[Rfam]
RNA sequence: GAGAAAUGAAGACCACCUCACCAUUCCUUAUUACAGUGAAGACUUCAGAUCCAACUCUGAUCUCACUCUUGUU
Numbered sequence: 001g002a003g004a005a006a007u008g009a010a011g012a013c014c015a016c017c018u019c020a021c022c023a024u025u026c027c028u029u030a031u032u033a034c035a036g037u038g039a040a041g042a043c044u045u046c047a048g049a050u051c052c053a054a055c056u057c058u059g060a061u062c063u064c065a066c067u068c069u070u071g072u073u
Stems, first nucleotide, its partner, number of pairs: 001064004
Dot-bracket structure: ((((........................................................)))).........